Rfam assigns this 111-nucleotide sequence from Gossypium barbadense to the family "mir-172 microRNA precursor family". mir-172 has been experimentally verified in Arabidopsis thaliana. This family is thought to target mRNAs coding for APETALA2-like transcription factors. The mature sequence is excised from the 3' arm of the hairpin. The family has 11 seed sequences and 2,076 matches in Rfam 15.1. It scores 75 bits against the family's covariance model. The organism belongs to Gossypium, within Eukaryota. For this family Rfam cites "Computational Identification of Plant MicroRNAs and Their Targets, Including a Stress-Induced miRNA" (Jones-Rhoades and Bartel, Mol Cell, 2004). The base pairs follow the family's consensus structure, which was predicted with PFOLD. Gene Ontology terms of the family: miRNA-mediated post-transcriptional gene silencing and RISC complex.
RNA sequence: UUCAUUGCCAAUGCAGCAUCAUCAAGAUUCUCAGACCCAAACUAUACAUAUAUAUAUAUACAUAAAUACGACGUUGCAUGUGAAUCUUGAUGAUGCUACAUUUGCAAACAA
Numbered sequence: 001u002u003c004a005u006u007g008c009c010a011a012u013g014c015a016g017c018a019u020c021a022u023c024a025a026g027a028u029u030c031u032c033a034g035a036c037c038c039a040a041a042c043u044a045u046a047c048a049u050a051u052a053u054a055u056a057u058a059u060a061c062a063u064a065a066a067u068a069c070g071a072c073g074u075u076g077c078a079u080g081u082g083a084a085u086c087u088u089g090a091u092g093a094u095g096c097u098a099c100a101u102u103u104g105c106a107a108a109c110a111a
Stems, first nucleotide, its partner, number of pairs: 010102004015097016032080002